[Rfam]
Shown here is an 83-nucleotide RNA sequence from Pseudanabaena cinerea, a member of the family "tRNA". The family's consensus secondary structure is taken from published work. The source organism's lineage runs through Bacteria, Cyanobacteriota, Pseudanabaenales, Pseudanabaenaceae and Pseudanabaena cinerea.

Nucleotides: 083
Stems, first nucleotide, its partner, number of pairs: 001082007010025003027043005059075005
Number, partner (000 for none) and nucleotide at each position: 001082g002081g003080g004079g005078g006077u007076a008000u009000g010025g011024c012023g013000g014000a015000a016000u017000g018000g019000u020000a021000g022000a023012c024011g025010c026000u027043a028042c029041g030040g031039a032000c033000u034000u035000a036000a037000a038000a039031u040030c041029c042028g043027u044000u045000g046000a047000u048000c049000g050000u051000a052000a053000g054000a055000u056000c057000g058000u059075a060074a061073g062072g063071g064000u065000u066000c067000a068000a069000g070000u071063c072062c073061c074060u075059u076007u077006a078005c079004c080003c081002c082001c083000a

Annotation:
Rfam links the family to the GO term triplet codon-amino acid adaptor activity. The match comes from Rfam's covariance-model search (64 bits).